RNA sequence: CGACAUUCUCAGGGCGGGGCGAAAUUCCCCACCGGCGGUUACAGCCCGCGAGCGCCUCGCGUUUCUAAUGAAACGCCUGGGUCAGCAGAUCCGGUGAAAUUCCGGGGCCGACGGUUAAAGUCCGGAUGGAAGAGGAUGGUC
Dot-bracket structure: ...(((((((......(((.......))).[[((((((.....[[))))..((...............................))...(((((.......)))))]])).(((.....]]))).......)))))))...
Numbered sequence: 001c002g003a004c005a006u007u008c009u010c011a012g013g014g015c016g017g018g019g020c021g022a023a024a025u026u027c028c029c030c031a032c033c034g035g036c037g038g039u040u041a042c043a044g045c046c047c048g049c050g051a052g053c054g055c056c057u058c059g060c061g062u063u064u065c066u067a068a069u070g071a072a073a074c075g076c077c078u079g080g081g082u083c084a085g086c087a088g089a090u091c092c093g094g095u096g097a098a099a100u101u102c103c104g105g106g107g108c109c110g111a112c113g114g115u116u117a118a119a120g121u122c123c124g125g126a127u128g129g130a131a132g133a134g135g136a137u138g139g140u141c
Stems, first nucleotide, its partner, number of pairs: 004138007017029003031121002033110002035049004044108002052086002090106005112124003
The record is a 141-nucleotide sequence from Aliiroseovarius sediminilitoris, which matches "FMN riboswitch aptamer (RFN element)" in Rfam. Rfam links the family to the GO term FMN binding. Lineage of the source: Bacteria > Pseudomonadota > Alphaproteobacteria > Rhodobacterales > Aliiroseovarius.